RNA sequence: AAAACUGUCUGGGGGAUGGUUUGGUUUGAGAGCCGAUGAAGGACGUGCCAAGCUGCGAAAUGUCUUGGGGAGGCGCAAGGAGCCCUUGAUCCGAGAAUGUCCGAAUGGGACUUCCUGUCGUAAGACACUCCGAAAGGAGAGGGAACUCAGGGAAUUGAAACAUCUUAGUACCUGAAGGAAAAGAAAUCAAUUGAGAUACCGUUACUAAAGGCGAUCGAAAGCGGUAUAAGGCAAACCGAAUUUUCCUUUGAAGAAAAGGAAAAGUUGUGGUGUAUGGACUCUUCCCAACAUCUAGUAUACGAAUCAGAAUGGCCUGGAAAGGUCAACCAAAGAAGGUGAUAGUCCUGUAAGAGUAAGUAUAAAGGUUACGAGGAAGAAGUUCCGGAGUACCGUGCGUCGUUAUUCGCGCGGGAAGAUGGGUGGCAUCAACAUCCAACCUUAAAUACUUCUCAAGUCCGAUAGCGUACAAGUACCGUGAGGGAAAACUGAAAAGCAACCCGGAAGGGUAGUGAAAAGUACCUGAAACCAGACAGUGAUAAACUUAUAGGGCGCUAAAGCGGUGAUCUUCCUAACACGAAGUGAGCGGCGUUCUAUUAU
Numbered sequence: 001a002a003a004a005c006u007g008u009c010u011g012g013g014g015g016a017u018g019g020u021u022u023g024g025u026u027u028g029a030g031a032g033c034c035g036a037u038g039a040a041g042g043a044c045g046u047g048c049c050a051a052g053c054u055g056c057g058a059a060a061u062g063u064c065u066u067g068g069g070g071a072g073g074c075g076c077a078a079g080g081a082g083c084c085c086u087u088g089a090u091c092c093g094a095g096a097a098u099g100u101c102c103g104a105a106u107g108g109g110a111c112u113u114c115c116u117g118u119c120g121u122a123a124g125a126c127a128c129u130c131c132g133a134a135a136g137g138a139g140a141g142g143g144a145a146c147u148c149a150g151g152g153a154a155u156u157g158a159a160a161c162a163u164c165u166u167a168g169u170a171c172c173u174g175a176a177g178g179a180a181a182a183g184a185a186a187u188c189a190a191u192u193g194a195g196a197u198a199c200c201g202u203u204a205c206u207a208a209a210g211g212c213g214a215u216c217g218a219a220a221g222c223g224g225u226a227u228a229a230g231g232c233a234a235a236c237c238g239a240a241u242u243u244u245c246c247u248u249u250g251a252a253g254a255a256a257a258g259g260a261a262a263a264g265u266u267g268u269g270g271u272g273u274a275u276g277g278a279c280u281c282u283u284c285c286c287a288a289c290a291u292c293u294a295g296u297a298u299a300c301g302a303a304u305c306a307g308a309a310u311g312g313c314c315u316g317g318a319a320a321g322g323u324c325a326a327c328c329a330a331a332g333a334a335g336g337u338g339a340u341a342g343u344c345c346u347g348u349a350a351g352a353g354u355a356a357g358u359a360u361a362a363a364g365g366u367u368a369c370g371a372g373g374a375a376g377a378a379g380u381u382c383c384g385g386a387g388u389a390c391c392g393u394g395c396g397u398c399g400u401u402a403u404u405c406g407c408g409c410g411g412g413a414a415g416a417u418g419g420g421u422g423g424c425a426u427c428a429a430c431a432u433c434c435a436a437c438c439u440u441a442a443a444u445a446c447u448u449c450u451c452a453a454g455u456c457c458g459a460u461a462g463c464g465u466a467c468a469a470g471u472a473c474c475g476u477g478a479g480g481g482a483a484a485a486c487u488g489a490a491a492a493g494c495a496a497c498c499c500g501g502a503a504g505g506g507u508a509g510u511g512a513a514a515a516g517u518a519c520c521u522g523a524a525a526c527c528a529g530a531c532a533g534u535g536a537u538a539a540a541c542u543u544a545u546a547g548g549g550c551g552c553u554a555a556a557g558c559g560g561u562g563a564u565c566u567u568c569c570u571a572a573c574a575c576g577a578a579g580u581g582a583g584c585g586g587c588g589u590u591c592u593a594u595u596a597u
Base pairs, nucleotide, nucleotide: 004534005533006532007531008530009529010528011527012526018520019486020485023457024456025454026453027452028451029450030449031447032446041102042101043100044057045056046055063096064095065094066093067092068091072084073083074082107116108115109114128139129138130137131136146177147175148174149173150172151171157164158163187194188193198225199224200223201222202221209215228440229439230438231437236270237269238268246258247257248256249255280377281376282375283374290366291365304352305351310325311324312323313322314321328332334346335345336344390411391410392409393408394407395406396405418434419433420432421431422430473480474479544594545593546592547591548590549589550588551587552586557584558583565579566578567577568576570574

The record is a 597-nucleotide part of an RNA from Thermoplasmatales archaeon Gpl, which matches "Archaeal large subunit ribosomal RNA" in Rfam. Rfam links the family to the GO terms structural constituent of ribosome and ribosome. The sequence is in the family's curated seed alignment. The organism belongs to Thermoplasmatales, within Archaea. A reference for the family is Yusupov et al. (2001), "Crystal structure of the ribosome at 5.5 A resolution", Science.